[Rfam]
RNA: U12 minor spliceosomal RNA
Organism: Dipodomys ordii
RNA sequence: AUGCCUUAAACUGAUGAGUAAGGAACACAACAAUUCGGGGUGAUGCCCGGAUCCUCACUGCUAAUGUGAGACAAAUUUUUGAGCGGGUAAUGGUUGCCCCUAAGGUGACCUACCUACUUUGCAGGAUGCCUGGGUGCUGCAAUCUG
Numbered sequence: 001a002u003g004c005c006u007u008a009a010a011c012u013g014a015u016g017a018g019u020a021a022g023g024a025a026c027a028c029a030a031c032a033a034u035u036c037g038g039g040g041u042g043a044u045g046c047c048c049g050g051a052u053c054c055u056c057a058c059u060g061c062u063a064a065u066g067u068g069a070g071a072c073a074a075a076u077u078u079u080u081g082a083g084c085g086g087g088u089a090a091u092g093g094u095u096g097c098c099c100c101u102a103a104g105g106u107g108a109c110c111u112a113c114c115u116a117c118u119u120u121g122c123a124g125g126a127u128g129c130c131u132g133g134g135u136g137c138u139g140c141a142a143u144c145u146g
Base pairs, nucleotide, nucleotide: 004023005022006021007020008019033052034051035050036049037048038047039046054070055069056068057067058066088146092144093143094142095141096140097139100134101133103131104130105129106128107127109125110124111123113121